Shown here is a 364-nucleotide RNA sequence from Thiohalophilus thiocyanatoxydans, a member of the family "transfer-messenger RNA". On this family, see Zwieb et al., Nucleic Acids Res 2003: "tmRDB (tmRNA database)". Rfam classes the family as a non-coding RNA gene. About the family: Bacterial tmRNA, also known as 10Sa RNA or SsrA, is named for its dual tRNA and mRNA-like properties. Its role is to liberate the mRNA from a stalled ribosome. To accomplish this part of the tmRNA is used as a reading frame that ends in a translation stop signal. The broken mRNA is replaced in the ribosome by the tmRNA and translation of the tmRNA leads to addition of a proteolysis tag to the incomplete protein enabling recognition by a protease. Recently a number of permuted tmRNA genes have been found encoded in two parts. tmRNAs have been identified in eubacteria and some chloroplasts but are absent from archaeal and eukaryote nuclear genomes. It scores 242 bits against the family's covariance model.
RNA sequence: GGGGGCGACCUGGAUUCGACGUGGGUUGCGAAACCGGAGGUGCAUGCCGAGGAUGCAGGUUUCCUCGUAAAUCCAUCUGCAAAAAUAUAGUUGCCAACGACGACAACUACGCACUCGCCGCUUAAAACCCGGUAGGGUGCCCUCUGACUGAAGCCGUGCCUGUGCGUUCAGAUUCCAGGGGUCAUAUCUCACAGGAUCGCGUCAAAGCUCGUCCGGGGCCGCGACGUUAAAACCUAACCGGAAUCGCCGUCAGUUGGCCCUGCCCGUCGGGUUGCUGCCGGUUAAAACAAUAGACGCGGAUAAGCAUGUAGAGCCGAUGGCAGAGGACUUGCGGACGCGGGUUCGAUUCCCGCCGCCUCCACCA
Numbered sequence: 001g002g003g004g005g006c007g008a009c010c011u012g013g014a015u016u017c018g019a020c021g022u023g024g025g026u027u028g029c030g031a032a033a034c035c036g037g038a039g040g041u042g043c044a045u046g047c048c049g050a051g052g053a054u055g056c057a058g059g060u061u062u063c064c065u066c067g068u069a070a071a072u073c074c075a076u077c078u079g080c081a082a083a084a085a086u087a088u089a090g091u092u093g094c095c096a097a098c099g100a101c102g103a104c105a106a107c108u109a110c111g112c113a114c115u116c117g118c119c120g121c122u123u124a125a126a127a128c129c130c131g132g133u134a135g136g137g138u139g140c141c142c143u144c145u146g147a148c149u150g151a152a153g154c155c156g157u158g159c160c161u162g163u164g165c166g167u168u169c170a171g172a173u174u175c176c177a178g179g180g181g182u183c184a185u186a187u188c189u190c191a192c193a194g195g196a197u198c199g200c201g202u203c204a205a206a207g208c209u210c211g212u213c214c215g216g217g218g219c220c221g222c223g224a225c226g227u228u229a230a231a232a233c234c235u236a237a238c239c240g241g242a243a244u245c246g247c248c249g250u251c252a253g254u255u256g257g258c259c260c261u262g263c264c265c266g267u268c269g270g271g272u273u274g275c276u277g278c279c280g281g282u283u284a285a286a287a288c289a290a291u292a293g294a295c296g297c298g299g300a301u302a303a304g305c306a307u308g309u310a311g312a313g314c315c316g317a318u319g320g321c322a323g324a325g326g327a328c329u330u331g332c333g334g335a336c337g338c339g340g341g342u343u344c345g346a347u348u349c350c351c352g353c354c355g356c357c358u359c360c361a362c363c364a
Stems, first nucleotide, its partner, number of pairs: 001360007020333008034320003039315003043308005048067005054081007113138004117133004141181006148171004154166001159195006200226004211244002214241001216239001246282004251277004258271003264299002266295003337353005